The record is a 176-nucleotide sequence from Cryptosporangium aurantiacum, which matches "c-di-AMP riboswitch aptamer (ydaO/yuaA leader)" in Rfam. The source organism's lineage runs through Bacteria, Bacillati, Actinomycetota, Cryptosporangiaceae and Cryptosporangium. A search with the family's covariance model found it, with a score of 66 bits.
[Rfam]
RNA sequence: GCCCGGCUACGCCGAAUCCUGCCCCGGGCGACGAGGACUUCGAACCUCGGGCAGGAGCGGGGGACCCAACUUCCGGUGUCGCAAGUUGACGCCUUGGGGUGAAGCCACGCACCGCGUGGCCGGGCCGACUCAGCCCGAACCCGACAGCUCACCUCGUAGGCGUGGAGAGGGUCGGA
Numbered sequence: 001g002c003c004c005g006g007c008u009a010c011g012c013c014g015a016a017u018c019c020u021g022c023c024c025c026g027g028g029c030g031a032c033g034a035g036g037a038c039u040u041c042g043a044a045c046c047u048c049g050g051g052c053a054g055g056a057g058c059g060g061g062g063g064a065c066c067c068a069a070c071u072u073c074c075g076g077u078g079u080c081g082c083a084a085g086u087u088g089a090c091g092c093c094u095u096g097g098g099g100u101g102a103a104g105c106c107a108c109g110c111a112c113c114g115c116g117u118g119g120c121c122g123g124g125c126c127g128a129c130u131c132a133g134c135c136c137g138a139a140c141c142c143g144a145c146a147g148c149u150c151a152c153c154u155c156g157u158a159g160g161c162g163u164g165g166a167g168a169g170g171g172u173c174g175g176a
Stems, first nucleotide, its partner, number of pairs: 010162004017056008057157006067096002097142003105119004122136004